[Rfam]
Rfam assigns this 81-nucleotide RNA sequence from Micromonospora siamensis to the family "ZMP/ZTP riboswitch aptamer (pfl RNA motif)". It scores 39 bits against the family's covariance model.

RNA sequence: UGGGACUGCGACUGGCGGCACCGGGGAUGGGAUCGACCAUCGGGGAGCUCGUCGCGGGGGUCGACCGCCUGGGCCUCCGCG
Numbered sequence: 001u002g003g004g005a006c007u008g009c010g011a012c013u014g015g016c017g018g019c020a021c022c023g024g025g026g027a028u029g030g031g032a033u034c035g036a037c038c039a040u041c042g043g044g045g046a047g048c049u050c051g052u053c054g055c056g057g058g059g060g061u062c063g064a065c066c067g068c069c070u071g072g073g074c075c076u077c078c079g080c081g
Base pairs, nucleotide, nucleotide: 003053004052008048009047012044013043014069015068016067017066018065027040028039029038030037058076059075060074061073062072